[Rfam]
Shown here is an 87-nucleotide sequence from Hordeum vulgare, a member of the family "Small nucleolar RNA Z102/R77". Rfam links the family to the GO terms nucleolus and RNA processing. Rfam 15.1 lists 1,346 matches to the family in 224 species.
RNA sequence: AGAUGAGAUGAUGAAUGAGAUUUAUUUCCCUAUUGGUUUGAUUGGCUGAUAUGAUGGCCUAAAAUACUGAACUGUAUCUGAUCAUCU
Numbered sequence: 001a002g003a004u005g006a007g008a009u010g011a012u013g014a015a016u017g018a019g020a021u022u023u024a025u026u027u028c029c030c031u032a033u034u035g036g037u038u039u040g041a042u043u044g045g046c047u048g049a050u051a052u053g054a055u056g057g058c059c060u061a062a063a064a065u066a067c068u069g070a071a072c073u074g075u076a077u078c079u080g081a082u083c084a085u086c087u
Stems, first nucleotide, its partner, number of pairs: 002086004044059004